[Rfam]
RNA sequence: CGAGGCGCAUUCUAGGGUUCCGCACGUCGUGGUCUGGUCCGAGAGAAUGCCCGCUCCAAACGGAGUGACACGGAAGGAGAAAAGCCUGGGAGAU
Numbered sequence: 001c002g003a004g005g006c007g008c009a010u011u012c013u014a015g016g017g018u019u020c021c022g023c024a025c026g027u028c029g030u031g032g033u034c035u036g037g038u039c040c041g042a043g044a045g046a047a048u049g050c051c052c053g054c055u056c057c058a059a060a061c062g063g064a065g066u067g068a069c070a071c072g073g074a075a076g077g078a079g080a081a082a083a084g085c086c087u088g089g090g091a092g093a094u
Stems, first nucleotide, its partner, number of pairs: 007050006015040002020037002022034001023031003052067006069089001071092001075087003
RNA: Guanidine-I riboswitch aptamer
Organism: Planococcaceae bacterium Storch 2/2-2